Record summary:
Shown here is an 86-nucleotide RNA from Crypturellus soui, a member of the family "Small nucleolar RNA SNORD103/SNORD85". The match comes from Rfam's covariance-model search (62 bits). The family has 41 seed sequences and 1,349 matches in Rfam 15.1.
[Rfam]
RNA sequence: UCUGGCGAUGACGACCACCUUGCCCUCGCUGAGAACACUGUUCGCUAAUGAGAGCAUCACCAUGUACUCGGGUGAGCUGAGCCAGG
Numbered sequence: 001u002c003u004g005g006c007g008a009u010g011a012c013g014a015c016c017a018c019c020u021u022g023c024c025c026u027c028g029c030u031g032a033g034a035a036c037a038c039u040g041u042u043c044g045c046u047a048a049u050g051a052g053a054g055c056a057u058c059a060c061c062a063u064g065u066a067c068u069c070g071g072g073u074g075a076g077c078u079g080a081g082c083c084a085g086g
Stems, first nucleotide, its partner, number of pairs: 001086006

Rfam classes the family as a C/D-box small nucleolar RNA. The literature on the family includes a 2001 paper in EMBO J by Huttenhofer et al., "RNomics: an experimental approach that identifies 201 candidates for novel, small, non-messenger RNAs in mouse". Taxonomically the source falls in Crypturellus (Eukaryota, Eumetazoa, Teleostomi, Archosauria).